Rfam assigns this 86-nucleotide RNA from Clostridium baratii to the family "NiCo (Nickel/Cobalt) riboswitch aptamer". Taxonomically the source falls in Clostridium baratii (Bacteria, Bacillati, Clostridia, Eubacteriales). The family's consensus secondary structure is taken from published work. A search with the family's covariance model found it, with a score of 67 bits. Clan: NiCo_riboswitches. For this family Rfam cites "Bacterial riboswitches cooperatively bind Ni(2+) or Co(2+) ions and control expression of heavy metal transporters" (Furukawa et al., Mol Cell, 2015).
RNA sequence: ACAGUACAAACUGAUCAGGCCGUUAAAUAUGUAUUUAUGGAGCCGGGCCGAAAGGCAACAGGAUUAUUAAAACCUGUGGGACAGUA
Dot-bracket structure: .........((((..(.(((.((.((.......)).))...)))..(((....))).(((((..........)))))..).)))).